[Rfam]
RNA sequence: CUGCGGUCGGGAUGUUGACUUAUGUCACUCCUGGAAGCAGUGUGGGGAAACACCAUCGAUGGAUGGGCACAUUAACCACA
Numbered sequence: 001c002u003g004c005g006g007u008c009g010g011g012a013u014g015u016u017g018a019c020u021u022a023u024g025u026c027a028c029u030c031c032u033g034g035a036a037g038c039a040g041u042g043u044g045g046g047g048a049a050a051c052a053c054c055a056u057c058g059a060u061g062g063a064u065g066g067g068c069a070c071a072u073u074a075a076c077c078a079c080a
Stems, first nucleotide, its partner, number of pairs: 001040004009032004014028002017026003041080005053066005

Source information: Shown here is an 80-nucleotide RNA sequence, a member of the family "Hairpin ribozyme 1 from viruses-like metatranscriptomes". It is one of the family's seed sequences. The literature on the family includes a 2021 paper in Nucleic Acids Res by Weinberg et al., "Identification of over 200-fold more hairpin ribozymes than previously known in diverse circular RNAs". Rfam links the family to the GO term RNA nuclease activity.